Small nucleolar RNA ACA64: a 125-nucleotide sequence from Bucco capensis. The family has 30 seed sequences and 9,537 matches in Rfam 15.1. The organism belongs to Bucco, within Eukaryota. It is annotated as an H/ACA-box small nucleolar RNA. A reference for the family is Schattner et al. (2006), "A computational screen for mammalian pseudouridylation guide H/ACA RNAs", RNA.

[Rfam]
RNA sequence: AGAGUCUGACAAUGCCUUGUGUUCUCCUGUGGCCCCUGGUGCCAGAACUGUGCCCACAGCAGAGGGAGCAUUAAACUCAUUGCCCAUGGGAAAGGGUGGGGAGUGAUAGCCAUGCUCCUAGAAUC
Numbered sequence: 001a002g003a004g005u006c007u008g009a010c011a012a013u014g015c016c017u018u019g020u021g022u023u024c025u026c027c028u029g030u031g032g033c034c035c036c037u038g039g040u041g042c043c044a045g046a047a048c049u050g051u052g053c054c055c056a057c058a059g060c061a062g063a064g065g066g067a068g069c070a071u072u073a074a075a076c077u078c079a080u081u082g083c084c085c086a087u088g089g090g091a092a093a094g095g096g097u098g099g100g101g102a103g104u105g106a107u108a109g110c111c112a113u114g115c116u117c118c119u120a121g122a123a124u125c
Stems, first nucleotide, its partner, number of pairs: 006050001008048001010045001013041003021033003065118001067116005077106005085098003